[Rfam]
A member of the RNA family "mir-36 microRNA precursor family" from Caenorhabditis brenneri, 102 nucleotides long. On this family, see Ohler et al., RNA 2004: "Patterns of flanking sequence conservation and a characteristic upstream motif for microRNA gene identification". It is one of the family's seed sequences. NCBI's taxonomy places the organism under Eukaryota, Ecdysozoa, Rhabditoidea, Peloderinae, Caenorhabditis. Its Rfam clan is "mir-36 clan".
RNA sequence: UAUUCAGGGUUGGAUCGGACCUUUGCUGGUUUCUGCCGCGGUGAUAUUUCUAUUUCGUGAUUAUCACCGGGUAAAAAUACAGCAGAGGUCCGGUCCUUCCUU
Numbered sequence: 001u002a003u004u005c006a007g008g009g010u011u012g013g014a015u016c017g018g019a020c021c022u023u024u025g026c027u028g029g030u031u032u033c034u035g036c037c038g039c040g041g042u043g044a045u046a047u048u049u050c051u052a053u054u055u056c057g058u059g060a061u062u063a064u065c066a067c068c069g070g071g072u073a074a075a076a077a078u079a080c081a082g083c084a085g086a087g088g089u090c091c092g093g094u095c096c097u098u099c100c101u102u
Stems, first nucleotide, its partner, number of pairs: 016092007024084005029078004034073004039069001041067006
Dot-bracket structure: ...............(((((((.(((((((((.((((.(.((((((...............)))))).))))).)))).))))).)))))))..........